RNA sequence: AGGCCUAAAGAGGGAGGCAGGGUCUGAUCUGCAGCCUCCAUGGCAGCUGUUGGUCAGCCUUUGCCUCUCUCUUUCUCAGGC
Numbered sequence: 001a002g003g004c005c006u007a008a009a010g011a012g013g014g015a016g017g018c019a020g021g022g023u024c025u026g027a028u029c030u031g032c033a034g035c036c037u038c039c040a041u042g043g044c045a046g047c048u049g050u051u052g053g054u055c056a057g058c059c060u061u062u063g064c065c066u067c068u069c070u071c072u073u074u075c076u077c078a079g080g081c
Base pairs, nucleotide, nucleotide: 008073009072010071011070012069013068014067015066016065017064018063019062020061022059024057025056026055027054028053029052032049033048034047035046

Shown here is an 81-nucleotide RNA sequence from Pipistrellus kuhlii, a member of the family "mir-574 microRNA precursor family". The literature on the family includes a 2010 paper in Anim Genet by Nielsen et al., "MicroRNA identity and abundance in porcine skeletal muscles determined by deep sequencing". The source organism's lineage runs through Eukaryota, Vertebrata, Gnathostomata, Teleostomi and Pipistrellus. Rfam links the family to the GO terms RISC complex and miRNA-mediated post-transcriptional gene silencing. Clan: mir-574 microRNA precursor clan. Pairs were carried over by alignment from the consensus structure, which was predicted with RNAalifold.